This 389-nucleotide part of an RNA from Candidatus Altarchaeales archaeon WOR_SM1_SCG belongs to the Rfam family "Archaeal large subunit ribosomal RNA". Its Rfam clan is "LSU clan". Pairs were carried over by alignment from the consensus structure, which is taken from published work.
RNA sequence: AGUAGUAACAGCAAAGUAAUGUGAGAAUCAUUACCAUCUGAAGGGCAAGGGUUCCUCAACAAUGUUUAUCAGUUGAGGGUUAGUCGAUCCUAAGGUAUCCGUAAUUCGGGUGACGAAAGGGAAACUGGUUAAUAUUCCAGUACCAUACAAGUACACGCGGUAACGCAAUUUCAUUUCCUGACAUUUCGGGGUAGUCCGAGCAUCAUUGUCUUGAUGUCUAAAAGAAAUAAGAUUGUGGAGUACUAUAAAAGUGAGAAGCAGUCUAAAUCUUGAAUUAGUUGUUAGAUUCAGACAAUCCCUGGAAUUCGUAAAAAGGGAAAUGAUAGGACCUUGUAUGAUCGUACCAAGAACUGACACAGGUGCCCCUAGGUGAAAAGCCUCAGAUGUGA
Numbered sequence: 001a002g003u004a005g006u007a008a009c010a011g012c013a014a015a016g017u018a019a020u021g022u023g024a025g026a027a028u029c030a031u032u033a034c035c036a037u038c039u040g041a042a043g044g045g046c047a048a049g050g051g052u053u054c055c056u057c058a059a060c061a062a063u064g065u066u067u068a069u070c071a072g073u074u075g076a077g078g079g080u081u082a083g084u085c086g087a088u089c090c091u092a093a094g095g096u097a098u099c100c101g102u103a104a105u106u107c108g109g110g111u112g113a114c115g116a117a118a119g120g121g122a123a124a125c126u127g128g129u130u131a132a133u134a135u136u137c138c139a140g141u142a143c144c145a146u147a148c149a150a151g152u153a154c155a156c157g158c159g160g161u162a163a164c165g166c167a168a169u170u171u172c173a174u175u176u177c178c179u180g181a182c183a184u185u186u187c188g189g190g191g192u193a194g195u196c197c198g199a200g201c202a203u204c205a206u207u208g209u210c211u212u213g214a215u216g217u218c219u220a221a222a223a224g225a226a227a228u229a230a231g232a233u234u235g236u237g238g239a240g241u242a243c244u245a246u247a248a249a250a251g252u253g254a255g256a257a258g259c260a261g262u263c264u265a266a267a268u269c270u271u272g273a274a275u276u277a278g279u280u281g282u283u284a285g286a287u288u289c290a291g292a293c294a295a296u297c298c299c300u301g302g303a304a305u306u307c308g309u310a311a312a313a314a315g316g317g318a319a320a321u322g323a324u325a326g327g328a329c330c331u332u333g334u335a336u337g338a339u340c341g342u343a344c345c346a347a348g349a350a351c352u353g354a355c356a357c358a359g360g361u362g363c364c365c366c367u368a369g370g371u372g373a374a375a376a377g378c379c380u381c382a383g384a385u386g387u388g389a
Stems, first nucleotide, its partner, number of pairs: 016034006035386004043365004049345002054078006063071002085341003089120002094114001096112006124141005144337008177317003183305009194293003198289001200217005222271004232262005242252003277282001351360002368380003